[Rfam]
The record is a 246-nucleotide sequence from Panicum virgatum, which matches "RNase MRP" in Rfam. Gene Ontology terms of the family: ribonuclease MRP complex, rRNA processing and ribonuclease MRP activity. The literature on the family includes a 1993 paper in FASEB J by Schmitt et al., "Secondary structure of RNase MRP RNA as predicted by phylogenetic comparison". A search with the family's covariance model found it, with a score of 86 bits.
RNA sequence: GUGCCACAGGAUGAAGUGAGCGGGCCUAACAAGCCCUGGAAAGUCCCCGGGCCCCUCUGCGCAGCGAUGCGCCCACGGAAACGUGGACGGCCCACGGGCUGGCUCUCCCCGUUGUUGUUUGGGGGGCUGAGACGUGUGUGGAGCCCAAUUCAGGGAGCCGGCCCUGGGUCAAAUGGCCGAAUAUCUCACAGUUAUUCACUUGGUCCAAGUUUGGACUAACAGAACGGGGCUUACACUCCUGUGGCA
Dot-bracket structure: .((((((((((..((((((..((((.......))))....[[[.[[[[...........((((....)))).(((((....)))))...((......(((..(..........(.........((((......(....)...))))..)...)..)))..)).................................)))))).(((((....))))).........]]]]]]]....))))))))))